[Rfam]
RNA: ZMP/ZTP riboswitch aptamer (pfl RNA motif)
RNA sequence: UUGUCUCGUCGCGACUGGCGUACAGAUGGUCACCAUCGGGGAACGACGAAACGCGCGGGGAUACGAGCCGCGCACAACAAGGCCGCUCGCCUGGGCCGCAGAU
Numbered sequence: 001u002u003g004u005c006u007c008g009u010c011g012c013g014a015c016u017g018g019c020g021u022a023c024a025g026a027u028g029g030u031c032a033c034c035a036u037c038g039g040g041g042a043a044c045g046a047c048g049a050a051a052c053g054c055g056c057g058g059g060g061a062u063a064c065g066a067g068c069c070g071c072g073c074a075c076a077a078c079a080a081g082g083c084c085g086c087u088c089g090c091c092u093g094g095g096c097c098g099c100a101g102a103u
Stems, first nucleotide, its partner, number of pairs: 003052002006049006015040002017091004026036004081097004